[Rfam]
RNA sequence: UAUUAAUGGAAAGCGCCAGGGCUAUGGUGAACGAAGAAUCCAUAGCUGACGAGGUGGAGGUUUUAUCGAGUUUGAUCGGCGGAUGCCUCCCGGUUGUUGCAUCUCAACCGUCACAUUUUUAUUCGAAAACAUGAAGGUAACUUUAUGAACAAGAAUAAAAAUAAGAUGCCU
Numbered sequence: 001u002a003u004u005a006a007u008g009g010a011a012a013g014c015g016c017c018a019g020g021g022c023u024a025u026g027g028u029g030a031a032c033g034a035a036g037a038a039u040c041c042a043u044a045g046c047u048g049a050c051g052a053g054g055u056g057g058a059g060g061u062u063u064u065a066u067c068g069a070g071u072u073u074g075a076u077c078g079g080c081g082g083a084u085g086c087c088u089c090c091c092g093g094u095u096g097u098u099g100c101a102u103c104u105c106a107a108c109c110g111u112c113a114c115a116u117u118u119u120u121a122u123u124c125g126a127a128a129a130c131a132u133g134a135a136g137g138u139a140a141c142u143u144u145a146u147g148a149a150c151a152a153g154a155a156u157a158a159a160a161a162u163a164a165g166a167u168g169c170c171u
Stems, first nucleotide, its partner, number of pairs: 020047008056090005066079004091110006116161007130147007
glmS glucosamine-6-phosphate activated ribozyme aptamer: a 171-nucleotide sequence from Gracilibacillus halophilus. The base pairs follow the family's consensus structure, which is taken from published work. A search with the family's covariance model found it, with a score of 114 bits.